[Rfam]
RNA sequence: GUGCUGUGAUGGUUUGAUCAACACAUCAUUCUGACCUCAAAGUGGGGAAAGAUUUCAAUGUAACUGAGCAUG
Numbered sequence: 001g002u003g004c005u006g007u008g009a010u011g012g013u014u015u016g017a018u019c020a021a022c023a024c025a026u027c028a029u030u031c032u033g034a035c036c037u038c039a040a041a042g043u044g045g046g047g048a049a050a051g052a053u054u055u056c057a058a059u060g061u062a063a064c065u066g067a068g069c070a071u072g
Stems, first nucleotide, its partner, number of pairs: 001071004
RNA: Small nucleolar RNA SNORD63
Organism: Scleropages formosus